RNA sequence: GCCCUUAUAGCUCAGUUGGUAGAGCACCUGAUUUGUAAUCAGGGGGUCGGUGGUUCGAGUCCAUCUGGGGGCA
Numbered sequence: 001g002c003c004c005u006u007a008u009a010g011c012u013c014a015g016u017u018g019g020u021a022g023a024g025c026a027c028c029u030g031a032u033u034u035g036u037a038a039u040c041a042g043g044g045g046g047u048c049g050g051u052g053g054u055u056c057g058a059g060u061c062c063a064u065c066u067g068g069g070g071g072c073a
Base pairs, nucleotide, nucleotide: 001072002071003070004069005068006067007066010025011024012023013022027043028042029041030040031039049065050064051063052062053061
Shown here is a 73-nucleotide RNA from Candidatus Tokpelaia sp. JSC189, a member of the family "tRNA". The family's RNA type in Rfam is transfer RNA. Taxonomically the source falls in Candidatus Tokpelaia (Bacteria, Pseudomonadati, Pseudomonadota, Alphaproteobacteria). Rfam describes the family as follows. Transfer RNA (tRNA) molecules are approximately 80 nucleotides in length. Their secondary structure includes four short double-helical elements and three loops (D, anti-codon, and T loops). The family's consensus secondary structure is taken from published work.